[Rfam]
RNA: U4 spliceosomal RNA
Organism: Daphnia pulex
RNA sequence: AGCUUUGCGCAGUGGCAAUAUCAUAACCAAUGAGGGUCUCCCGAGGUGUGAUUAUUGCUAGUUGAAAACUUUAACCAAUACCCCGCCACGAUGAAGUGAAAUAAUCUUUGUCGUCGGCAAUUUUUGAUAGCUCCAUCAGGAG
Numbered sequence: 001a002g003c004u005u006u007g008c009g010c011a012g013u014g015g016c017a018a019u020a021u022c023a024u025a026a027c028c029a030a031u032g033a034g035g036g037u038c039u040c041c042c043g044a045g046g047u048g049u050g051a052u053u054a055u056u057g058c059u060a061g062u063u064g065a066a067a068a069c070u071u072u073a074a075c076c077a078a079u080a081c082c083c084c085g086c087c088a089c090g091a092u093g094a095a096g097u098g099a100a101a102u103a104a105u106c107u108u109u110g111u112c113g114u115c116g117g118c119a120a121u122u123u124u125u126g127a128u129a130g131c132u133c134c135a136u137c138a139g140g141a142g
Base pairs, nucleotide, nucleotide: 020052021051022050023049024048026047027046028045034042035041036040085118086117087116088114089113090112091111092110093109094108095107096106131142132141133140134139
Dot-bracket structure: ...................(((((.(((.....(((...)))..))))))))................................((((((((((((.........))))))))).)))............((((....))))